[Rfam]
RNA sequence: GGCUGGUCUAAUGAUAGAGGGUUAUCAGAACUUAUGUGUGUCACUAAAGUUGAUAUACAACUCCCACUGCUACAUUUGACUGGCUUAAA
Numbered sequence: 001g002g003c004u005g006g007u008c009u010a011a012u013g014a015u016a017g018a019g020g021g022u023u024a025u026c027a028g029a030a031c032u033u034a035u036g037u038g039u040g041u042c043a044c045u046a047a048a049g050u051u052g053a054u055a056u057a058c059a060a061c062u063c064c065c066a067c068u069g070c071u072a073c074a075u076u077u078g079a080c081u082g083g084c085u086u087a088a089a
Stems, first nucleotide, its partner, number of pairs: 001085008010077002015072001016068002019065003027054001030051001

Shown here is an 89-nucleotide sequence from Saimiri boliviensis, a member of the family "Y RNA". Taxonomically the source falls in Saimiri boliviensis (Eukaryota, Deuterostomia, Sarcopterygii, Platyrrhini).